[Rfam]
RNA sequence: UUGUGGAUUCAAUCGCUGUAUUUGAAAAAGAAUAUAGAGGAAACUCCACGCUUGCACAUUCUGAGAUGAAUGUAGUGUUUGUGCUAGAAGAAAAAAUAAUUCUAGGCACCAUCUGGUGACGACAAUCUAAGACCUAAGGUUUCGACUAUGGUUGAAGACUAAAGUGCCACAGUGACGAUCAGCGAGAAAUCGUGAAAUGGAACGGGUAAACUCCACAAGCAAGAAACUCAAAUUUUGGUAGAGGAACUCGAGAAGGUUAAAUUGAAGCUAACUUGGGACAGAGCAAUCUGUAGAUAGAUGAUUGAAGCGCAGCAAUGCGAACAAAACGUGGGUUAUGAAG
Numbered sequence: 001u002u003g004u005g006g007a008u009u010c011a012a013u014c015g016c017u018g019u020a021u022u023u024g025a026a027a028a029a030g031a032a033u034a035u036a037g038a039g040g041a042a043a044c045u046c047c048a049c050g051c052u053u054g055c056a057c058a059u060u061c062u063g064a065g066a067u068g069a070a071u072g073u074a075g076u077g078u079u080u081g082u083g084c085u086a087g088a089a090g091a092a093a094a095a096a097u098a099a100u101u102c103u104a105g106g107c108a109c110c111a112u113c114u115g116g117u118g119a120c121g122a123c124a125a126u127c128u129a130a131g132a133c134c135u136a137a138g139g140u141u142u143c144g145a146c147u148a149u150g151g152u153u154g155a156a157g158a159c160u161a162a163a164g165u166g167c168c169a170c171a172g173u174g175a176c177g178a179u180c181a182g183c184g185a186g187a188a189a190u191c192g193u194g195a196a197a198u199g200g201a202a203c204g205g206g207u208a209a210a211c212u213c214c215a216c217a218a219g220c221a222a223g224a225a226a227c228u229c230a231a232a233u234u235u236u237g238g239u240a241g242a243g244g245a246a247c248u249c250g251a252g253a254a255g256g257u258u259a260a261a262u263u264g265a266a267g268c269u270a271a272c273u274u275g276g277g278a279c280a281g282a283g284c285a286a287u288c289u290g291u292a293g294a295u296a297g298a299u300g301a302u303u304g305a306a307g308c309g310c311a312g313c314a315a316u317g318c319g320a321a322c323a324a325a326a327c328g329u330g331g332g333u334u335a336u337g338a339a340g
Base pairs, nucleotide, nucleotide: 004340007336008306009305010304011303012302013301014300016037017036018035019034020033021032042334043333044332046331047330048329049328050327051223052222053221054220055219056073057072058071059070060069061068079218080217081216082215083214084105085104086103087102088101089100106120107118108117109116110115121213122212124160126158127157131153132152133151134150138147139146140145164211165210166207167206168205179195180194182193183192184191185190227243228242229241247277248276249275250274251273252272278291279290280289281288282287308319309318310317311316
The record is a 340-nucleotide RNA, which matches "Bacterial RNase P class B" in Rfam. It is annotated as a ribozyme. Rfam's curators write: Ribonuclease P (RNase P) is a ubiquitous endoribonuclease, found in archaea, bacteria and eukarya as well as chloroplasts and mitochondria. Its best characterised activity is the generation of mature 5'-ends of tRNAs by cleaving the 5'-leader elements of precursor-tRNAs. Cellular RNase Ps are ribonucleoproteins. RNA from bacterial RNase Ps retains its catalytic activity in the absence of the protein subunit, i.e. it is a ribozyme. Isolated eukaryotic and archaeal RNase P RNA has not been shown to retain its catalytic function, but is still essential for the catalytic activity of the holoenzyme. Although the archaeal and eukaryotic holoenzyme s have a much greater protein content than the bacterial ones, the RNA cores from all the three lineages are homologous -- helices corresponding to P1, P2, P3, P4, and P10/11 are common to all cellular RNase P RNAs. Yet, there is considerable sequence variation, particularly among the eukaryotic RNAs. Pairs were carried over by alignment from the consensus structure, which is taken from published work.